The family of this 78-nucleotide sequence from Drosophila mojavensis is "mir-10 microRNA precursor family". The match comes from Rfam's covariance-model search (58 bits). A reference for the family is Lee and Ambros (2001), "An extensive class of small RNAs in Caenorhabditis elegans", Science. The family has 36 seed sequences and 3,853 matches in Rfam 15.1.

RNA sequence: CCACGUCUACCCUGUAGAUCCGAAUUUGUUGUACCAUAGCUUUAAGGACAAAUUCGGUUCUAGAGAGGUUUAUGUGGC
Numbered sequence: 001c002c003a004c005g006u007c008u009a010c011c012c013u014g015u016a017g018a019u020c021c022g023a024a025u026u027u028g029u030u031g032u033a034c035c036a037u038a039g040c041u042u043u044a045a046g047g048a049c050a051a052a053u054u055c056g057g058u059u060c061u062a063g064a065g066a067g068g069u070u071u072a073u074g075u076g077g078c
Stems, first nucleotide, its partner, number of pairs: 002076005010068002016061003020057011